[Rfam]
Nucleotides: 072
Stems, first nucleotide, its partner, number of pairs: 001071003005067003010025004027043005048064005
Number, partner (000 for none) and nucleotide at each position: 001071g002070c003069c004000g005067c006066c007065g008000u009000a010025g011024u012023u013022c014000a015000a016000u017000g018000g019000a020000u021000a022013g023012a024011a025010c026000g027043a028042g029041u030040g031039c032000c033000u034000c035000c036000u037000a038000a039031g040030c041029g042028c043027u044000a045000g046000a047000u048064a049063c050062a051061g052060g053000u054000u055000c056000g057000a058000u059000u060052c061051c062050u063049g064048u065007c066006g067005g068000a069003g070002g071001c072000a

The record is a 72-nucleotide RNA sequence from Limnohabitans sp. JirII-31, which matches "tRNA" in Rfam. The family's RNA type in Rfam is transfer RNA. The source organism's lineage runs through Bacteria, Pseudomonadota, Burkholderiales, Comamonadaceae and Limnohabitans. The base pairs follow the family's consensus structure, which is taken from published work.